[Rfam]
RNA sequence: UUAUGUGUGUAUGGUGUUCAGCACCAAGGACAGGUAUGUUUCCAUAUGUGUGUAUGGUGUUCAGCACCAAGGACAGGUGUGUUUACCU
Numbered sequence: 001u002u003a004u005g006u007g008u009g010u011a012u013g014g015u016g017u018u019c020a021g022c023a024c025c026a027a028g029g030a031c032a033g034g035u036a037u038g039u040u041u042c043c044a045u046a047u048g049u050g051u052g053u054a055u056g057g058u059g060u061u062c063a064g065c066a067c068c069a070a071g072g073a074c075a076g077g078u079g080u081g082u083u084u085a086c087c088u
Base pairs, nucleotide, nucleotide: 001076002075004073012069013068014067015066016065017064018063020061021060022059023058024057025056026055028049030047032045034043036041
RNA: mir-2060 microRNA precursor family
Organism: Branchiostoma belcheri